RNA sequence: GAAUAUAAUUCUCAAUAAACUCGUAUAACCCCGGCGAUGGGGCCGGGGGUAUCUACCAGGUGACCGGAAAUCGCCUGACUACGAGUCGGGUCCGGCAGCUG
Numbered sequence: 001g002a003a004u005a006u007a008a009u010u011c012u013c014a015a016u017a018a019a020c021u022c023g024u025a026u027a028a029c030c031c032c033g034g035c036g037a038u039g040g041g042g043c044c045g046g047g048g049g050u051a052u053c054u055a056c057c058a059g060g061u062g063a064c065c066g067g068a069a070a071u072c073g074c075c076u077g078a079c080u081a082c083g084a085g086u087c088g089g090g091u092c093c094g095g096c097a098g099c100u101g
Stems, first nucleotide, its partner, number of pairs: 019086007029048007057077007
RNA: Purine riboswitch aptamer
Organism: Neomoorella humiferrea